RNA sequence: GAUCCGAAAGUAUGGUAGAAAGUAAUAUAUUUACUACCAUACUAUCUAUUUUUGUUAUUCUAGUAUAUAAAGUUGUACUG
Numbered sequence: 001g002a003u004c005c006g007a008a009a010g011u012a013u014g015g016u017a018g019a020a021a022g023u024a025a026u027a028u029a030u031u032u033a034c035u036a037c038c039a040u041a042c043u044a045u046c047u048a049u050u051u052u053u054g055u056u057a058u059u060c061u062a063g064u065a066u067a068u069a070a071a072g073u074u075g076u077a078c079u080g
Stems, first nucleotide, its partner, number of pairs: 006046002009043010020032004
RNA: Plastid-psbM 3UTR RNA